[Rfam]
RNA sequence: CAUAAGCAUGCAGCGCACGUUGGCACAGAGCCGAACGCACGCAAUCCUCUUUCUCAAAACGAACAAUACCCACCAUUUCAUCCUCCUCGAAACGCGCGAGCGCAUCGCUGAGGCCAGACUGAACGCUGGACGGCAAAUCGCACUGGGUGACAUCCCCGUUGACAAUCACCGUGACAUUCUCCCCAAGGCGGGUC
Numbered sequence: 001c002a003u004a005a006g007c008a009u010g011c012a013g014c015g016c017a018c019g020u021u022g023g024c025a026c027a028g029a030g031c032c033g034a035a036c037g038c039a040c041g042c043a044a045u046c047c048u049c050u051u052u053c054u055c056a057a058a059a060c061g062a063a064c065a066a067u068a069c070c071c072a073c074c075a076u077u078u079c080a081u082c083c084u085c086c087u088c089g090a091a092a093c094g095c096g097c098g099a100g101c102g103c104a105u106c107g108c109u110g111a112g113g114c115c116a117g118a119c120u121g122a123a124c125g126c127u128g129g130a131c132g133g134c135a136a137a138u139c140g141c142a143c144u145g146g147g148u149g150a151c152a153u154c155c156c157c158g159u160u161g162a163c164a165a166u167c168a169c170c171g172u173g174a175c176a177u178u179c180u181c182c183c184c185a186a187g188g189c190g191g192g193u194c
Base pairs, nucleotide, nucleotide: 002054004052005051006050008048014041015040018037019036061078062077063076067072083112084111085110088107093102094101095100113193114192115191117189119188120187125134126133127132137166138165140163144158145157146156171183173181174180
A member of the RNA family "Yersinia sRNA 251" from Paramixta manurensis, 194 nucleotides long. A search with the family's covariance model found it, with a score of 157 bits. The family's RNA type in Rfam is antisense RNA. The base pairs follow the family's consensus structure, which was predicted with RNAfold.